[Rfam]
RNA sequence: UGUUUGCCAUGAUGAUUCCUACAAGGACGGUAUCUGAGUGAGGAACCUCUUGAAAGAGAGCUCCUCACAUGAUUAUAUCCAAAACUGAUCAGAGAUUCUGAGCAAACA
Numbered sequence: 001u002g003u004u005u006g007c008c009a010u011g012a013u014g015a016u017u018c019c020u021a022c023a024a025g026g027a028c029g030g031u032a033u034c035u036g037a038g039u040g041a042g043g044a045a046c047c048u049c050u051u052g053a054a055a056g057a058g059a060g061c062u063c064c065u066c067a068c069a070u071g072a073u074u075a076u077a078u079c080c081a082a083a084a085c086u087g088a089u090c091a092g093a094g095a096u097u098c099u100g101a102g103c104a105a106a107c108a
Stems, first nucleotide, its partner, number of pairs: 001108007038068006

Shown here is a 108-nucleotide RNA sequence, a member of the family "Small nucleolar RNA Z118/Z121/Z120". The family's consensus secondary structure was predicted with PFOLD. The family has 7 seed sequences and 435 matches in Rfam 15.1. Rfam's curators put it in the seed alignment.